The family of this 96-nucleotide sequence from Apium graveolens is "Small nucleolar RNA Z157/R69/R10".
The family has 10 seed sequences and 836 matches in Rfam 15.1.
Clan: SNORD52 clan.
Taxonomically the source falls in Apium (Eukaryota, Streptophytina, Embryophyta, Gunneridae).
Pairs were carried over by alignment from the consensus structure, which was predicted with PFOLD.
For this family Rfam cites "The high diversity of snoRNAs in plants: identification and comparative study of 120 snoRNA genes from Oryza sativa" (Chen et al., Nucleic Acids Res, 2003).
RNA sequence: AUUGAUACAGUGAUGAGGCUUAUGUGGACUAGAGUUUCUGAUCUGGGUUUAAUUCCUAGUAUCUGAAGACAACCCCUUGGCUGUCUGAGCAUCUCU
Numbered sequence: 001a002u003u004g005a006u007a008c009a010g011u012g013a014u015g016a017g018g019c020u021u022a023u024g025u026g027g028a029c030u031a032g033a034g035u036u037u038c039u040g041a042u043c044u045g046g047g048u049u050u051a052a053u054u055c056c057u058a059g060u061a062u063c064u065g066a067a068g069a070c071a072a073c074c075c076c077u078u079g080g081c082u083g084u085c086u087g088a089g090c091a092u093c094u095c096u
Stems, first nucleotide, its partner, number of pairs: 001096001004093003008089001035068004042061001043059005